The family of this 67-nucleotide RNA sequence from Pipistrellus kuhlii is "mir-9256 microRNA precursor family".
RNA sequence: AAAUACACUGAGUGGCCAGAUUAUUAUGACCUCUGAAUUCAUAAUAAUGUGGCCACUCAGUGUGUGU
Numbered sequence: 001a002a003a004u005a006c007a008c009u010g011a012g013u014g015g016c017c018a019g020a021u022u023a024u025u026a027u028g029a030c031c032u033c034u035g036a037a038u039u040c041a042u043a044a045u046a047a048u049g050u051g052g053c054c055a056c057u058c059a060g061u062g063u064g065u066g067u
Stems, first nucleotide, its partner, number of pairs: 004064014020048009
Record summary: It scores 83 bits against the family's covariance model. NCBI's taxonomy places the organism under Eukaryota, Dipnotetrapodomorpha, Tetrapoda, Laurasiatheria, Pipistrellus. Rfam links the family to the GO terms miRNA-mediated post-transcriptional gene silencing and RISC complex.